The record is an 83-nucleotide RNA sequence from Clupea harengus, which matches "Small nucleolar RNA snR60/Z15/Z230/Z193/J17" in Rfam. The family has 23 seed sequences and 3,592 matches in Rfam 15.1. The pairing is the family consensus, mapped onto this sequence.

RNA sequence: GCAAUACAGUGAUGACUCCAUAGUUCAGCUGAUGUCCUUUGAUGAUUCAGAGCAUUGUCUUUCGCUCCUAUCUGAUGUAUCCG
Numbered sequence: 001g002c003a004a005u006a007c008a009g010u011g012a013u014g015a016c017u018c019c020a021u022a023g024u025u026c027a028g029c030u031g032a033u034g035u036c037c038u039u040u041g042a043u044g045a046u047u048c049a050g051a052g053c054a055u056u057g058u059c060u061u062u063c064g065c066u067c068c069u070a071u072c073u074g075a076u077g078u079a080u081c082c083g
Base pairs, nucleotide, nucleotide: 004080005079006078007077008076
Dot-bracket structure: ...(((((...................................................................)))))...